The family of this 31-nucleotide RNA from Adlercreutzia mucosicola is "L31-Coriobacteria ribosomal protein leader". The family's RNA type in Rfam is cis-regulatory leader. It is one of the family's seed sequences.
[Rfam]
RNA sequence: CCCUUGGUCGGAAACCAAGGGAAGUUAGGAG
Numbered sequence: 001c002c003c004u005u006g007g008u009c010g011g012a013a014a015c016c017a018a019g020g021g022a023a024g025u026u027a028g029g030a031g
Stems, first nucleotide, its partner, number of pairs: 001021008